[Rfam]
RNA sequence: UCAACCUCGCUGGGAGAAACCGGUUCGAUCCGGUGCCGAAGGAGCAACCGCCCCGGAAACUCUCAGGCAAAAGGACCAGCAAGGUGCC
Number, nucleotide and partner (000 for none) at each position: 001u000002c000003a000004a000005c000006c083007u082008c000009g080010c079011u078012g077013g076014g000015a000016g000017a000018a000019a000020c033021c032022g031023g030024u000025u000026c000027g000028a000029u000030c023031c022032g021033g020034u000035g068036c067037c066038g064039a063040a000041g000042g062043a061044g060045c000046a000047a000048c056049c055050g000051c000052c000053c000054c000055g049056g048057a000058a000059a000060c044061u043062c042063u039064c038065a000066g037067g036068c035069a000070a000071a000072a000073g000074g000075a000076c013077c012078a011079g010080c009081a000082a007083g006084g000085u000086g000087c000088c000

A member of the RNA family "Glycine riboswitch aptamer" from Sinorhizobium sp. BG8, 88 nucleotides long. The base pairs follow the family's consensus structure. Taxonomically the source falls in Sinorhizobium (Bacteria, Alphaproteobacteria, Hyphomicrobiales, Rhizobiaceae). A search with the family's covariance model found it, with a score of 66 bits.